[Rfam]
Nucleotides: 085
Stems, first nucleotide, its partner, number of pairs: 001084007010027006028046006048061005063077004
Number, partner (000 for none) and nucleotide at each position: 001084c002083g003082c004081g005080g006079g007078g008000u009000a010027c011026c012025g013024g014023g015022c016000u017000u018000g019000g020000u021000a022015g023014c024013c025012c026011g027010g028046g029045g030044c031043g032042g033041a034000c035000u036000u037000c038000a039000g040000a041033u042032c043031c044030g045029u046028c047000g048061a049060g050059g051058g052057c053000g054000a055000g056000a057052g058051c059050c060049c061048u062000c063077g064076g065075g066074g067000u068000u069000c070000g071000a072000u073000u074066c075065c076064c077063c078007c079006c080005c081004u082003g083002c084001g085000c
Overview
Shown here is an 85-nucleotide RNA from Methanocaldococcus jannaschii, a member of the family "Selenocysteine transfer RNA". Taxonomically the source falls in Methanocaldococcus jannaschii (Archaea, Methanobacteriati, Methanobacteriota, Methanocaldococcus).